The record is an 87-nucleotide sequence from Papaver somniferum, which matches "Small nucleolar RNA Z43" in Rfam. Taxonomically the source falls in Papaver (Eukaryota, Tracheophyta, Spermatophyta, Mesangiospermae).
RNA sequence: GGACAGUGAUGAUUUCUUUGGUCUCGUUCGUCGUAAUGUAUGGAUUUAAUCUGUACUUGCCGAUCAUUCUGAUAUAAUUCUGAGUCU
Numbered sequence: 001g002g003a004c005a006g007u008g009a010u011g012a013u014u015u016c017u018u019u020g021g022u023c024u025c026g027u028u029c030g031u032c033g034u035a036a037u038g039u040a041u042g043g044a045u046u047u048a049a050u051c052u053g054u055a056c057u058u059g060c061c062g063a064u065c066a067u068u069c070u071g072a073u074a075u076a077a078u079u080c081u082g083a084g085u086c087u
Stems, first nucleotide, its partner, number of pairs: 001087004043058002045053001